[Rfam]
Shown here is a 78-nucleotide sequence from Sulfurovum lithotrophicum, a member of the family "c-di-GMP-I-GGC riboswitch aptamer". The family is grouped with related families in Rfam's "c-di-GMP_I riboswitch clan". Taxonomically the source falls in Sulfurovum (Bacteria, Pseudomonadati, Campylobacterales, Sulfurovaceae). Rfam links the family to the GO term cyclic-di-GMP binding. A search with the family's covariance model found it, with a score of 59 bits.
RNA sequence: UAUUGUUGUGCCAAACCUAUCGUGAGGUAGGGACGGAAAGCCACGAGUCUGAGGAUUCAGAUAGUCGGGUUGCCAAUA
Numbered sequence: 001u002a003u004u005g006u007u008g009u010g011c012c013a014a015a016c017c018u019a020u021c022g023u024g025a026g027g028u029a030g031g032g033a034c035g036g037a038a039a040g041c042c043a044c045g046a047g048u049c050u051g052a053g054g055a056u057u058c059a060g061a062u063a064g065u066c067g068g069g070u071u072g073c074c075a076a077u078a
Stems, first nucleotide, its partner, number of pairs: 001078001003075001011036002016031006034064001039071004044067003047062003